[Rfam]
RNA: Actino-pnp RNA
Nucleotides: 065
Base pairs, nucleotide, nucleotide: 003063004062005061006060007059009057010056011055012054013053017049018048020046021045022044023043024042025041026040028038029037030036
Number, partner (000 for none) and nucleotide at each position: 001000u002000c003063c004062g005061g006060u007059c008000c009057u010056c011055g012054g013053u014000a015000g016000u017049g018048g019000c020046a021045c022044c023043c024042g025041g026040a027000c028038c029037g030036c031000c032000c033000c034000g035000c036030g037029c038028g039000c040026u041025c042024c043023g044022g045021g046020u047000a048018c049017c050000u051000c052000g053013a054012u055011c056010g057009a058000a059007g060006a061005c062004c063003g064000c065000c